This 100-nucleotide RNA sequence from Chlorocebus sabaeus belongs to the Rfam family "Small nucleolar RNA SNORD46". The pairing is the family consensus, mapped onto this sequence. A reference for the family is Chen et al. (2003), "The high diversity of snoRNAs in plants: identification and comparative study of 120 snoRNA genes from Oryza sativa", Nucleic Acids Res. Rfam links the family to the GO terms RNA processing and nucleolus. A search with the family's covariance model found it, with a score of 100 bits. U40 is a C/D box small nucleolar RNA, also known as snoZ153 in plants. The human sequence has also been annotated in the sequence databases as U46.

[Rfam]
RNA sequence: UACUGGAGUGAUGAAAAUGUAUCUUCAGGUGUGGUUGUGGCCACCUUGGCCACCUGUGUGUCACUUGUCCAUGUAAGGACUUGUCAUAGUUACACUGUUA
Numbered sequence: 001u002a003c004u005g006g007a008g009u010g011a012u013g014a015a016a017a018u019g020u021a022u023c024u025u026c027a028g029g030u031g032u033g034g035u036u037g038u039g040g041c042c043a044c045c046u047u048g049g050c051c052a053c054c055u056g057u058g059u060g061u062c063a064c065u066u067g068u069c070c071a072u073g074u075a076a077g078g079a080c081u082u083g084u085c086a087u088a089g090u091u092a093c094a095c096u097g098u099u100a
Base pairs, nucleotide, nucleotide: 001100002099004097005096006095